[Rfam]
RNA sequence: GCUAAUUCGAGUAUAUGGGGAUGAUUAUCUGACAUUCAAUGCUUAUGACCAUCAGAAAAGCGAAAGGGGGAAAUUUUUCCCCCUUUAUGCUAACU
Numbered sequence: 001g002c003u004a005a006u007u008c009g010a011g012u013a014u015a016u017g018g019g020g021a022u023g024a025u026u027a028u029c030u031g032a033c034a035u036u037c038a039a040u041g042c043u044u045a046u047g048a049c050c051a052u053c054a055g056a057a058a059a060g061c062g063a064a065a066g067g068g069g070g071a072a073a074u075u076u077u078u079c080c081c082c083c084u085u086u087a088u089g090c091u092a093a094c095u
Base pairs, nucleotide, nucleotide: 010036011035012034016032018030019029020028063086064085065084066083067082068081069080070079071078072077
This 95-nucleotide RNA from Erwinia sp. OLSSP12 belongs to the Rfam family "sraA". The literature on the family includes a 2001 paper in Curr Biol by Argaman et al., "Novel small RNA-encoding genes in the intergenic regions of Escherichia coli". It scores 60 bits against the family's covariance model. Lineage of the source: Bacteria > Pseudomonadota > Gammaproteobacteria > Erwiniaceae > Erwinia.